[Rfam]
RNA sequence: UUGCCGAUGGAAGUCCGGUCCGGGUAGCUGCCAGGAGAUCUGGUGGCAGGCUGGCGGCUUGUCCUGGAAACGGGCCGGGUCGAAGCCCGGCGCCAAAAGUCCUGUUAGGAAGAGUAACUGAGCGGUCCGUAGCAUGA
Numbered sequence: 001u002u003g004c005c006g007a008u009g010g011a012a013g014u015c016c017g018g019u020c021c022g023g024g025u026a027g028c029u030g031c032c033a034g035g036a037g038a039u040c041u042g043g044u045g046g047c048a049g050g051c052u053g054g055c056g057g058c059u060u061g062u063c064c065u066g067g068a069a070a071c072g073g074g075c076c077g078g079g080u081c082g083a084a085g086c087c088c089g090g091c092g093c094c095a096a097a098a099g100u101c102c103u104g105u106u107a108g109g110a111a112g113a114g115u116a117a118c119u120g121a122g123c124g125g126u127c128c129g130u131a132g133c134a135u136g137a
Stems, first nucleotide, its partner, number of pairs: 020043005050091005055082006064073001066071001100110004114130002